[Rfam]
RNA sequence: AUCAUCAAAGACCUCCUAACUUUGAAUGAUAAAACUCCUAAAACUUUUUCAUAAUAAUCUCCCUAUAAGAGCCACCAAAACCGGUGGCUUUUUU
Numbered sequence: 001a002u003c004a005u006c007a008a009a010g011a012c013c014u015c016c017u018a019a020c021u022u023u024g025a026a027u028g029a030u031a032a033a034a035c036u037c038c039u040a041a042a043a044c045u046u047u048u049u050c051a052u053a054a055u056a057a058u059c060u061c062c063c064u065a066u067a068a069g070a071g072c073c074a075c076c077a078a079a080a081c082c083g084g085u086g087g088c089u090u091u092u093u094u
Stems, first nucleotide, its partner, number of pairs: 001030004005025006068091009
RNA: Cia-dependent small RNA csRNA1